[Rfam]
RNA sequence: GAUUAGGGUCAAGAUGGGAGUAGCGAGCCGUGGGCCAGGGCCACGUUAAUAACUGGAAACUUAAAUUAAACGCUAAAACAAACAAUAAUUUAGCUUUCGCUGCAUAGUCAGCGGACGUCUUACCACUAGUUUGUCUGUGACUGGUGACUAAGACGAAAACAAAUAGCAGACUACUUACCAAAGUUGCUUCGACUUGGUAGGGAAACUUAGAAGCUAGCAACUUUAAGAUUUUGUCUUUAGAAGCUUAGAGAAGCGAAACCCUAAAAUAGAGACUGCGCUCGGAGAGACUGCUGUUAAGAUACCUUCGGACGGGGGUUCGACUCCCCCCGCCUCCACCA
Numbered sequence: 001g002a003u004u005a006g007g008g009u010c011a012a013g014a015u016g017g018g019a020g021u022a023g024c025g026a027g028c029c030g031u032g033g034g035c036c037a038g039g040g041c042c043a044c045g046u047u048a049a050u051a052a053c054u055g056g057a058a059a060c061u062u063a064a065a066u067u068a069a070a071c072g073c074u075a076a077a078a079c080a081a082a083c084a085a086u087a088a089u090u091u092a093g094c095u096u097u098c099g100c101u102g103c104a105u106a107g108u109c110a111g112c113g114g115a116c117g118u119c120u121u122a123c124c125a126c127u128a129g130u131u132u133g134u135c136u137g138u139g140a141c142u143g144g145u146g147a148c149u150a151a152g153a154c155g156a157a158a159a160c161a162a163a164u165a166g167c168a169g170a171c172u173a174c175u176u177a178c179c180a181a182a183g184u185u186g187c188u189u190c191g192a193c194u195u196g197g198u199a200g201g202g203a204a205a206c207u208u209a210g211a212a213g214c215u216a217g218c219a220a221c222u223u224u225a226a227g228a229u230u231u232u233g234u235c236u237u238u239a240g241a242a243g244c245u246u247a248g249a250g251a252a253g254c255g256a257a258a259c260c261c262u263a264a265a266a267u268a269g270a271g272a273c274u275g276c277g278c279u280c281g282g283a284g285a286g287a288c289u290g291c292u293g294u295u296a297a298g299a300u301a302c303c304u305u306c307g308g309a310c311g312g313g314g315g316u317u318c319g320a321c322u323c324c325c326c327c328c329g330c331c332u333c334c335a336c337c338a
Stems, first nucleotide, its partner, number of pairs: 001304001004301002013295005019289003024281005029045005035056004096115007116155006124146003128142004133171006174201008186214005217254002221250006229242003233273004238266001311327005
Source information:
A member of the RNA family "transfer-messenger RNA" from Alkalicella caledoniensis, 338 nucleotides long. The source organism's lineage runs through Bacteria, Bacillota, Clostridia, Eubacteriales and Alkalicella. Pairs were carried over by alignment from the consensus structure, which is taken from published work. About the family: Bacterial tmRNA, also known as 10Sa RNA or SsrA, is named for its dual tRNA and mRNA-like properties. Its role is to liberate the mRNA from a stalled ribosome. To accomplish this part of the tmRNA is used as a reading frame that ends in a translation stop signal. The broken mRNA is replaced in the ribosome by the tmRNA and translation of the tmRNA leads to addition of a proteolysis tag to the incomplete protein enabling recognition by a protease. Rfam classes the family as a non-coding RNA gene. It scores 134 bits against the family's covariance model. The family is grouped with related families in Rfam's "tRNA clan". Gene Ontology term of the family: RNA catabolic process.